[Rfam]
RNA sequence: CGAGUAAAACAGAUGGUCGCUGCCUAAAGUUUUAGGGAGAGGAAAGUCCGAGCACCACAGAGCAGAAUGCUGGGUAACACCCAGUCAGGGCGACUUGAAGGAAAGUGCAACAGAGAUAUACCGCCUAGAGUAUAUUCUAGGUAAGGGUGGAAAGGUGAGGUAAGAGCUUACCAGCGCAAUGGCGACUUUGCGGCUAUGUAAACCCCAUUUGGUGCAAGAUCGAUUUGAAGCAAUGAGUUGCUCGCUCGCUUCAGAAGUAUCGCUUGAGUUUAUUGGUAACAAUAAACCUAGAUAGAUGACCGUCAAAUACAGAACUCGGCUUAUAGUUUUAGUCGUACA
Numbered sequence: 001c002g003a004g005u006a007a008a009a010c011a012g013a014u015g016g017u018c019g020c021u022g023c024c025u026a027a028a029g030u031u032u033u034a035g036g037g038a039g040a041g042g043a044a045a046g047u048c049c050g051a052g053c054a055c056c057a058c059a060g061a062g063c064a065g066a067a068u069g070c071u072g073g074g075u076a077a078c079a080c081c082c083a084g085u086c087a088g089g090g091c092g093a094c095u096u097g098a099a100g101g102a103a104a105g106u107g108c109a110a111c112a113g114a115g116a117u118a119u120a121c122c123g124c125c126u127a128g129a130g131u132a133u134a135u136u137c138u139a140g141g142u143a144a145g146g147g148u149g150g151a152a153a154g155g156u157g158a159g160g161u162a163a164g165a166g167c168u169u170a171c172c173a174g175c176g177c178a179a180u181g182g183c184g185a186c187u188u189u190g191c192g193g194c195u196a197u198g199u200a201a202a203c204c205c206c207a208u209u210u211g212g213u214g215c216a217a218g219a220u221c222g223a224u225u226u227g228a229a230g231c232a233a234u235g236a237g238u239u240g241c242u243c244g245c246u247c248g249c250u251u252c253a254g255a256a257g258u259a260u261c262g263c264u265u266g267a268g269u270u271u272a273u274u275g276g277u278a279a280c281a282a283u284a285a286a287c288c289u290a291g292a293u294a295g296a297u298g299a300c301c302g303u304c305a306a307a308u309a310c311a312g313a314a315c316u317c318g319g320c321u322u323a324u325a326g327u328u329u330u331a332g333u334c335g336u337a338c339a
Stems, first nucleotide, its partner, number of pairs: 001335003005331006011324001012304007020039002023036005044322003048319005053214004060243004065210005070084005085099001086097004100205002105203002107199003121146002123142008154172006174194001175192005181186001218261003221257001228251003234248005268287008

Bacterial RNase P class A: a 339-nucleotide sequence from Clostridium bornimense. The organism belongs to Clostridium, within Bacteria. Its family is annotated with ribonuclease P activity, dimeric ribonuclease P complex and tRNA processing in the Gene Ontology.